[Rfam]
A member of the RNA family "Fluoride riboswitch aptamer (crcB RNA motif)" from Brevibacillus fluminis, 61 nucleotides long.
RNA sequence: AACUUUACAGGCGAUGGAGUUCGCCUUUACCUGCCCGACGGCUGAUGACUCCUACCGAUAC
Numbered sequence: 001a002a003c004u005u006u007a008c009a010g011g012c013g014a015u016g017g018a019g020u021u022c023g024c025c026u027u028u029a030c031c032u033g034c035c036c037g038a039c040g041g042c043u044g045a046u047g048a049c050u051c052c053u054a055c056c057g058a059u060a061c
Base pairs, nucleotide, nucleotide: 010025011024012023013022016052017051018050019049020048021047033042034041035040

Taxonomically the source falls in Brevibacillus (Bacteria, Bacillati, Caryophanales, Paenibacillaceae). The match comes from Rfam's covariance-model search (56 bits). Pairs were carried over by alignment from the consensus structure, which is taken from published work.